The family of this 112-nucleotide RNA from Ornithinibacillus halotolerans is "BsrF". It is annotated as a small RNA.
RNA sequence: GCGAUGAGCUGAUUUGCAUAAGACGAGGAAUAAGGCAAUACAUGUGAAUGUGAACACAUGAUUCCAUCGCCGCAAAUAUACGUAGAAAACGCCUGUAUACGAUACAGGCGUU
Number, nucleotide and partner (000 for none) at each position: 001g000002c000003g000004a000005u000006g000007a000008g000009c000010u000011g000012a000013u000014u075015u074016g073017c072018a000019u000020a000021a000022g000023a000024c069025g068026a067027g065028g064029a063030a062031u061032a000033a000034g000035g000036c000037a000038a000039u000040a000041c060042a059043u000044g057045u056046g055047a000048a000049u000050g000051u000052g000053a000054a000055c046056a045057c044058a000059u042060g041061a031062u030063u029064c028065c027066a000067u026068c025069g024070c000071c000072g017073c016074a015075a014076a000077u000078a000079u000080a000081c000082g000083u000084a000085g000086a000087a000088a112089a111090c110091g109092c108093c107094u106095g105096u104097a000098u000099a000100c000101g000102a000103u000104a096105c095106a094107g093108g092109c091110g090111u089112u088

Source information
The family's consensus secondary structure was predicted with WAR. Taxonomically the source falls in Ornithinibacillus (Bacteria, Bacillota, Bacilli, Caryophanales).